[Rfam]
This 134-nucleotide RNA from Bos mutus belongs to the Rfam family "Small nucleolar RNA SNORA43". Rfam classes the family as an H/ACA-box small nucleolar RNA. The match comes from Rfam's covariance-model search (105 bits). ACA43 is a member of the H/ACA class of snoRNA that guide the sites of modification of uridines to pseudouridines. Taxonomically the source falls in Bos (Eukaryota, Opisthokonta, Boreoeutheria, Laurasiatheria). The family's consensus secondary structure was predicted with RNAfold.
RNA sequence: AAUGCAUGGCGGGUGCUGGCACCACGGGUGCGGCUGCCCUGCUGUGCCCGUGCCGUUGGGGCAGAGAGGAAGCGGCUAUUUAUACGCUCAGUGCUCAACCAUGGGCACUAAGAAUGGUUUGUAGCCGAACAUCA
Numbered sequence: 001a002a003u004g005c006a007u008g009g010c011g012g013g014u015g016c017u018g019g020c021a022c023c024a025c026g027g028g029u030g031c032g033g034c035u036g037c038c039c040u041g042c043u044g045u046g047c048c049c050g051u052g053c054c055g056u057u058g059g060g061g062c063a064g065a066g067a068g069g070a071a072g073c074g075g076c077u078a079u080u081u082a083u084a085c086g087c088u089c090a091g092u093g094c095u096c097a098a099c100c101a102u103g104g105g106c107a108c109u110a111a112g113a114a115u116g117g118u119u120u121g122u123a124g125c126c127g128a129a130c131a132u133c134a
Base pairs, nucleotide, nucleotide: 003063004062005061007059009057024051025050026049027048074126075125076124083116084115087112088111092107093106094105095104096103097102